[Rfam]
RNA sequence: AGCUUUGCGCAGUGGCAGUAUCGUAGCCAAUGAGGUUUAUCCGAGGCGCGAUUAUUGCUAAUUAAAACAUCUUCAAAUUUUAUUUUUAAACUUUUACAAAAUCUUUACAGAA
Number, nucleotide and partner (000 for none) at each position: 001a000002g000003c000004u000005u000006u000007g000008c000009g000010c000011a000012g000013u000014g000015g000016c000017a000018g000019u000020a052021u051022c050023g049024u048025a000026g047027c046028c045029a000030a000031u000032g000033a000034g042035g041036u000037u000038u000039a000040u000041c035042c034043g000044a000045g028046g027047c026048g024049c023050g022051a021052u020053u000054a000055u000056u000057g000058c000059u000060a000061a000062u000063u000064a000065a000066a000067a000068c000069a000070u000071c000072u000073u000074c000075a000076a000077a000078u000079u000080u000081u000082a000083u111084u110085u109086u000087u107088a106089a105090a104091c000092u000093u101094u100095u099096a000097c000098a000099a095100a094101a093102u000103c000104u090105u089106u088107a087108c000109a085110g084111a083112a000

The record is a 112-nucleotide RNA from Enhydra lutris, which matches "U4 spliceosomal RNA" in Rfam. Clan: U4 clan. By type it is a spliceosomal small nuclear RNA. Pairs were carried over by alignment from the consensus structure, which is taken from published work. The match comes from Rfam's covariance-model search (78 bits). U4 small nuclear RNA (U4 snRNA) is a component of the major U2-dependent spliceosome.